A member of the RNA family "Alphaproteobacterial sRNA ar7" from Arminella tumorigenes, 143 nucleotides long. A reference for the family is del Val et al. (2012), "A survey of sRNA families in alpha-proteobacteria", RNA Biol. By type it is a small RNA. The organism belongs to Arminella, within Bacteria.
RNA sequence: CACCGGCGCUUAACAAACGUCGCGGGUCUGGUCGCCGGCAUGUCCCCUGCCGCAUCAGACUUGGACAAAGGCCUCCCCCCUCUCCGGGCCUUUGUCCCCAUUUUUAGCCGCCAUGGUUUCCCUCCAGGCCAUGGCGGCUUUUU
Numbered sequence: 001c002a003c004c005g006g007c008g009c010u011u012a013a014c015a016a017a018c019g020u021c022g023c024g025g026g027u028c029u030g031g032u033c034g035c036c037g038g039c040a041u042g043u044c045c046c047c048u049g050c051c052g053c054a055u056c057a058g059a060c061u062u063g064g065a066c067a068a069a070g071g072c073c074u075c076c077c078c079c080c081u082c083u084c085c086g087g088g089c090c091u092u093u094g095u096c097c098c099c100a101u102u103u104u105u106a107g108c109c110g111c112c113a114u115g116g117u118u119u120c121c122c123u124c125c126a127g128g129c130c131a132u133g134g135c136g137g138c139u140u141u142u143u
Stems, first nucleotide, its partner, number of pairs: 027059006037051003063097011106139001108137011
Dot-bracket structure: ..........................((((((....(((.........)))..))))))...(((((((((((.............)))))))))))........(.(((((((((((........))))))))))).)....